[Rfam]
traJ-II RNA: a 106-nucleotide sequence from Vibrio palustris. Lineage of the source: Bacteria > Pseudomonadati > Gammaproteobacteria > Vibrionaceae > Vibrio.
RNA sequence: GGGCAGGAUGUGUGAAGUAGGCCCACCAUGCAAGCAUGGCGAAGCCUCUUCACUUAUGACUUAUUCGCACCUUCGGCACUCAACGUUGAUCCUGCCCUGCGGGGCC
Numbered sequence: 001g002g003g004c005a006g007g008a009u010g011u012g013u014g015a016a017g018u019a020g021g022c023c024c025a026c027c028a029u030g031c032a033a034g035c036a037u038g039g040c041g042a043a044g045c046c047u048c049u050u051c052a053c054u055u056a057u058g059a060c061u062u063a064u065u066c067g068c069a070c071c072u073u074c075g076g077c078a079c080u081c082a083a084c085g086u087u088g089a090u091c092c093u094g095c096c097c098u099g100c101g102g103g104g105c106c
Stems, first nucleotide, its partner, number of pairs: 001097009012053006020046002024041001026039003030035001057088004067079001070076002

Background: The family's RNA type in Rfam is cis-regulatory element.